Record summary: This 75-nucleotide sequence from Schaalia hyovaginalis belongs to the Rfam family "putative aminoglycoside riboswitch / attI site". Rfam describes the family as follows. Conserved RNA structure found upstream of the bacterial aminoglycosides antibiotic-resistant genes: aminoglycoside acetyl transferase (AAC) and aminoglycoside adenyl transferase (AAD). The family has 4 seed sequences and 39 matches in Rfam 15.1. The family's RNA type in Rfam is cis-regulatory element. Its family is annotated with aminoglycoside antibiotic metabolic process and regulation of gene expression in the Gene Ontology. The organism belongs to Schaalia, within Bacteria.
RNA sequence: GGAGCAGCAACGAUGUUACGCAGCAGGGCAGUCGCCCUAAAACAAAGUUAGGUCGCACAGGUACCACAUGGAAAG
Numbered sequence: 001g002g003a004g005c006a007g008c009a010a011c012g013a014u015g016u017u018a019c020g021c022a023g024c025a026g027g028g029c030a031g032u033c034g035c036c037c038u039a040a041a042a043c044a045a046a047g048u049u050a051g052g053u054c055g056c057a058c059a060g061g062u063a064c065c066a067c068a069u070g071g072a073a074a075g
Stems, first nucleotide, its partner, number of pairs: 006017001008015002020056002023053002026037004038050003059069001061067002